[Rfam]
RNA sequence: CGGCGUCCGUGAUGUUGCUUUUACCUACAUUGCUUGAUGUCUCCUGAGAAAAAAAACAAAUUCUGAGAUGCCU
Numbered sequence: 001c002g003g004c005g006u007c008c009g010u011g012a013u014g015u016u017g018c019u020u021u022u023a024c025c026u027a028c029a030u031u032g033c034u035u036g037a038u039g040u041c042u043c044c045u046g047a048g049a050a051a052a053a054a055a056a057c058a059a060a061u062u063c064u065g066a067g068a069u070g071c072c073u
Stems, first nucleotide, its partner, number of pairs: 002072001004070004
RNA: Small nucleolar RNA SNORD34
Organism: Hylia prasina